A member of the RNA family "Small nucleolar RNA SNORD34" from Phoenix dactylifera, 81 nucleotides long. NCBI's taxonomy places the organism under Eukaryota, Embryophyta, Liliopsida, Petrosaviidae, Phoenix. Its family is annotated with RNA processing and nucleolus in the Gene Ontology. Clan: SNORD34 clan. snoRNA U34 is found in intron 5 of the ribosomal protein L13a gene in humans.
[Rfam]
RNA sequence: GAGGCCUAUGAUGAUCAAUAUAUUGCCUACAUUGCUUGAUUCAGUUGUAUGAUAAGAACAUCCUUUUAUUCUGAGGCCUUC
Numbered sequence: 001g002a003g004g005c006c007u008a009u010g011a012u013g014a015u016c017a018a019u020a021u022a023u024u025g026c027c028u029a030c031a032u033u034g035c036u037u038g039a040u041u042c043a044g045u046u047g048u049a050u051g052a053u054a055a056g057a058a059c060a061u062c063c064u065u066u067u068a069u070u071c072u073g074a075g076g077c078c079u080u081c
Base pairs, nucleotide, nucleotide: 001080003078004077005076006075